Notes:
A member of the RNA family "mir-399 microRNA precursor family" from Quercus lobata, 100 nucleotides long. On this family, see Jones-Rhoades and Bartel, Mol Cell 2004: "Computational Identification of Plant MicroRNAs and Their Targets, Including a Stress-Induced miRNA". The match comes from Rfam's covariance-model search (66 bits).
RNA sequence: UAGGGAAUAACAGGGCAAUUCUCUUUUGGCAAAAGAGAAUAUGCACAUGCAUAUUGCAUACUUCUAUUUCGCCAAAGGAGAAUUGCCCUGCCAUUCACCU
Numbered sequence: 001u002a003g004g005g006a007a008u009a010a011c012a013g014g015g016c017a018a019u020u021c022u023c024u025u026u027u028g029g030c031a032a033a034a035g036a037g038a039a040u041a042u043g044c045a046c047a048u049g050c051a052u053a054u055u056g057c058a059u060a061c062u063u064c065u066a067u068u069u070c071g072c073c074a075a076a077g078g079a080g081a082a083u084u085g086c087c088c089u090g091c092c093a094u095u096c097a098c099c100u
Base pairs, nucleotide, nucleotide: 005096006095007094008093011090012089013088014087015086016085017084018083019082021080022079023078024077027074028073029072030071032069033068034067